[Rfam]
RNA sequence: AUCCUUUUUUAAAUGCAUUCCAGUGAGUUUGCAAAGAGGGAUGGAACGAAAGAAAGCCGCCUUACCGUGCGGCGGUCUUUGUCUGCCUCUUUGCGCAAUUUAAGCAAAGAGGCUUUUUUAAU
Numbered sequence: 001a002u003c004c005u006u007u008u009u010u011a012a013a014u015g016c017a018u019u020c021c022a023g024u025g026a027g028u029u030u031g032c033a034a035a036g037a038g039g040g041a042u043g044g045a046a047c048g049a050a051a052g053a054a055a056g057c058c059g060c061c062u063u064a065c066c067g068u069g070c071g072g073c074g075g076u077c078u079u080u081g082u083c084u085g086c087c088u089c090u091u092u093g094c095g096c097a098a099u100u101u102a103a104g105c106a107a108a109g110a111g112g113c114u115u116u117u118u119u120a121a122u
Stems, first nucleotide, its partner, number of pairs: 003039007015032003020027001049080005056073005062067001081117001085113010
RNA: PyrR binding site
Organism: Bacillus licheniformis